[Rfam]
RNA sequence: UGAGUCGGCCAAGACAAUCGCCGCCACGCAAGUGGGGGAGGAAAGUCCGGGCUCCAUCGGGCGAAGUGCCAGGUAAUGCCUGGGAGGCGCGAGCCUACGGAAAGUGCCACAGAGAAUGAACCGCCUAAGCGCCGCAAGGCGACGGUAAGGGUGAAAAGGUGCGGUAAGAGCGCACCGCGUCACUGGCAACAGUGGCGGCACGGAAAACCCCACUUGGAGCAAGACCAAAUAGGGAAGGACGCCGAAAGGCAACAUGCGGCCCGCAUGCCUUCCGGGUAGGUUGCUUGAGCGUGCCGGCGACGGUACGCCUAGAGGAAUGGUUGUCCACGACAGAACCCGGCUUAACGGCUGACUCGUUAA
Numbered sequence: 001u002g003a004g005u006c007g008g009c010c011a012a013g014a015c016a017a018u019c020g021c022c023g024c025c026a027c028g029c030a031a032g033u034g035g036g037g038g039a040g041g042a043a044a045g046u047c048c049g050g051g052c053u054c055c056a057u058c059g060g061g062c063g064a065a066g067u068g069c070c071a072g073g074u075a076a077u078g079c080c081u082g083g084g085a086g087g088c089g090c091g092a093g094c095c096u097a098c099g100g101a102a103a104g105u106g107c108c109a110c111a112g113a114g115a116a117u118g119a120a121c122c123g124c125c126u127a128a129g130c131g132c133c134g135c136a137a138g139g140c141g142a143c144g145g146u147a148a149g150g151g152u153g154a155a156a157a158g159g160u161g162c163g164g165u166a167a168g169a170g171c172g173c174a175c176c177g178c179g180u181c182a183c184u185g186g187c188a189a190c191a192g193u194g195g196c197g198g199c200a201c202g203g204a205a206a207a208c209c210c211c212a213c214u215u216g217g218a219g220c221a222a223g224a225c226c227a228a229a230u231a232g233g234g235a236a237g238g239a240c241g242c243c244g245a246a247a248g249g250c251a252a253c254a255u256g257c258g259g260c261c262c263g264c265a266u267g268c269c270u271u272c273c274g275g276g277u278a279g280g281u282u283g284c285u286u287g288a289g290c291g292u293g294c295c296g297g298c299g300a301c302g303g304u305a306c307g308c309c310u311a312g313a314g315g316a317a318u319g320g321u322u323g324u325c326c327a328c329g330a331c332a333g334a335a336c337c338c339g340g341c342u343u344a345a346c347g348g349c350u351g352a353c354u355c356g357u358u359a360a
Stems, first nucleotide, its partner, number of pairs: 001356010013325007021038002024035004043343003047340005052219004059262004064215005069083005084098001085096004099210002104208002107203002121150002123146003130141004158176006177199001178197008223282004233273006253267005289308008
Bacterial RNase P class A: a 360-nucleotide sequence from Stenotrophobium rhamnosiphilum. A search with the family's covariance model found it, with a score of 311 bits. Pairs were carried over by alignment from the consensus structure, which is taken from published work.